[Rfam]
RNA sequence: CGGCGAUGUCUCCUAUCCGUUAUAAAAGGGGGUACUCGAUCAUGCUGUGGGAUGCAGGAAAUGCAGGCCUUAGACGCGCUUUGUCGUCGAUAGCAUGGUGUGAGGGCGGGUUAGAUGCCCA
Numbered sequence: 001c002g003g004c005g006a007u008g009u010c011u012c013c014u015a016u017c018c019g020u021u022a023u024a025a026a027a028g029g030g031g032g033u034a035c036u037c038g039a040u041c042a043u044g045c046u047g048u049g050g051g052a053u054g055c056a057g058g059a060a061a062u063g064c065a066g067g068c069c070u071u072a073g074a075c076g077c078g079c080u081u082u083g084u085c086g087u088c089g090a091u092a093g094c095a096u097g098g099u100g101u102g103a104g105g106g107c108g109g110g111u112u113a114g115a116u117g118c119c120c121a
Stems, first nucleotide, its partner, number of pairs: 001019003007034007035104004039099008049070003053066001054064003073088004108120004